[Rfam]
RNA sequence: AUUUGAAAAAGGCAAAUCUACUGAAAAGUAGAGACGCAAAGUUACAGGCCUAUGGUUUUUAACUAUGGUGGCUGAACCGCUGAA
Numbered sequence: 001a002u003u004u005g006a007a008a009a010a011g012g013c014a015a016a017u018c019u020a021c022u023g024a025a026a027a028g029u030a031g032a033g034a035c036g037c038a039a040a041g042u043u044a045c046a047g048g049c050c051u052a053u054g055g056u057u058u059u060u061a062a063c064u065a066u067g068g069u070g071g072c073u074g075a076a077c078c079g080c081u082g083a084a
Base pairs, nucleotide, nucleotide: 012037013036017032018031019030020029021028022027041077042076043075045074046073047072048069049068050067055063056062057061

This 84-nucleotide RNA sequence from Aquibacillus salsiterrae belongs to the Rfam family "c-di-GMP-I riboswitch aptamer". Taxonomically the source falls in Aquibacillus (Bacteria, Bacilli, Caryophanales, Bacillaceae). The base pairs follow the family's consensus structure, which is taken from published work. Its family is annotated with cyclic-di-GMP binding in the Gene Ontology.